[Rfam]
RNA sequence: UGCGCAGGGCAUGACGCAUGACGAUGUUGGGAAAUGACACCCCCUUGAGCCGCGCGGUGCGGAUGUAUUGGGCGGUCAUGACCUCUGUCAUGGAGGCGCGGGUCAUUCGCGCGAUAUAGCCGAUCCCGUACAGGGCGAUGGUGAUGACAGGCAGAAAGAAGUUUUCGAUCGUCGGCUCU
Numbered sequence: 001u002g003c004g005c006a007g008g009g010c011a012u013g014a015c016g017c018a019u020g021a022c023g024a025u026g027u028u029g030g031g032a033a034a035u036g037a038c039a040c041c042c043c044c045u046u047g048a049g050c051c052g053c054g055c056g057g058u059g060c061g062g063a064u065g066u067a068u069u070g071g072g073c074g075g076u077c078a079u080g081a082c083c084u085c086u087g088u089c090a091u092g093g094a095g096g097c098g099c100g101g102g103u104c105a106u107u108c109g110c111g112c113g114a115u116a117u118a119g120c121c122g123a124u125c126c127c128g129u130a131c132a133g134g135g136c137g138a139u140g141g142u143g144a145u146g147a148c149a150g151g152c153a154g155a156a157a158g159a160a161g162u163u164u165u166c167g168a169u170c171g172u173c174g175g176c177u178c179u
Stems, first nucleotide, its partner, number of pairs: 005140002009136002012133001020125002028123001030121002038113001040111001042109001046105003050101005055075001057073002060070003082096005146178002148175001150173003154165004

Ruegeria cis52 sRNA: a 179-nucleotide RNA from Phaeobacter italicus. For this family Rfam cites "Experimental Identification of Small Non-Coding RNAs in the Model Marine Bacterium Ruegeria pomeroyi DSS-3" (Rivers et al., Front Microbiol, 2016). It scores 112 bits against the family's covariance model. Gene Ontology term of the family: regulation of gene expression. The family's RNA type in Rfam is small RNA. The organism belongs to Phaeobacter, within Bacteria.